Source information: A member of the RNA family "Small Cajal body specific RNA 1" from Myotis lucifugus, 165 nucleotides long. Rfam 15.1 lists 715 matches to the family in 617 species. Rfam classes the family as a small Cajal body RNA. The sequence is in the family's curated seed alignment. Gene Ontology terms of the family: nucleolus, RNA processing and Cajal body.

[Rfam]
RNA sequence: CAGCACUCGAUACUAACCCAGCUAUCUGCAUCCUAGCCUUGUGCCAAAGGCUUGUGAUGUGCUGUGAUAACUGGGUUGAAGAAGUGCAAUAUUAAAACAAAAGCCGUGAGUCUUUAAGCCCAGUGUGUAAAGACACACUCUGAGUUAUAACUCAGUGGCACAACU
Numbered sequence: 001c002a003g004c005a006c007u008c009g010a011u012a013c014u015a016a017c018c019c020a021g022c023u024a025u026c027u028g029c030a031u032c033c034u035a036g037c038c039u040u041g042u043g044c045c046a047a048a049g050g051c052u053u054g055u056g057a058u059g060u061g062c063u064g065u066g067a068u069a070a071c072u073g074g075g076u077u078g079a080a081g082a083a084g085u086g087c088a089a090u091a092u093u094a095a096a097a098c099a100a101a102a103g104c105c106g107u108g109a110g111u112c113u114u115u116a117a118g119c120c121c122a123g124u125g126u127g128u129a130a131a132g133a134c135a136c137a138c139u140c141u142g143a144g145u146u147a148u149a150a151c152u153c154a155g156u157g158g159c160a161c162a163a164c165u
Stems, first nucleotide, its partner, number of pairs: 003087004007082002015077004020072002023069004027061006033054001035052006103159003123138006140155005145149001